[Rfam]
RNA sequence: UGGAGGGCUGAGAAGGUUACGCAGCUUGUCGUGCUGUAAUAACUGGUUAAUGCCUCCUAGAGUAACUAACACGAGCACUUCAUGGUGGCGCUGUGUAACACCACAGUGCUGCCCCAUGCUUU
Numbered sequence: 001u002g003g004a005g006g007g008c009u010g011a012g013a014a015g016g017u018u019a020c021g022c023a024g025c026u027u028g029u030c031g032u033g034c035u036g037u038a039a040u041a042a043c044u045g046g047u048u049a050a051u052g053c054c055u056c057c058u059a060g061a062g063u064a065a066c067u068a069a070c071a072c073g074a075g076c077a078c079u080u081c082a083u084g085g086u087g088g089c090g091c092u093g094u095g096u097a098a099c100a101c102c103a104c105a106g107u108g109c110u111g112c113c114c115c116a117u118g119c120u121u122u
Base pairs, nucleotide, nucleotide: 002057003056004055005054006053015044016043017042018041021037022036023035024034025033074110075109077107078106079105085101086100087099089095
Small nucleolar RNA SNORA47: a 122-nucleotide RNA sequence from Muraenolepis orangiensis. For this family Rfam cites "RNomics: an experimental approach that identifies 201 candidates for novel, small, non-messenger RNAs in mouse" (Huttenhofer et al., EMBO J, 2001). The family's RNA type in Rfam is H/ACA-box small nucleolar RNA. The match comes from Rfam's covariance-model search (49 bits).